[Rfam]
RNA sequence: GCCACAUGAUGUUCUCAUGUUGAGAGGUGAGCGCUCUGCGCAGUGAUGACCUUCAUCUAUCACCCUGGACUGAUGGCU
Numbered sequence: 001g002c003c004a005c006a007u008g009a010u011g012u013u014c015u016c017a018u019g020u021u022g023a024g025a026g027g028u029g030a031g032c033g034c035u036c037u038g039c040g041c042a043g044u045g046a047u048g049a050c051c052u053u054c055a056u057c058u059a060u061c062a063c064c065c066u067g068g069a070c071u072g073a074u075g076g077c078u
Stems, first nucleotide, its partner, number of pairs: 001077004031041004
RNA: Small nucleolar RNA SNORD83
Organism: Pipistrellus kuhlii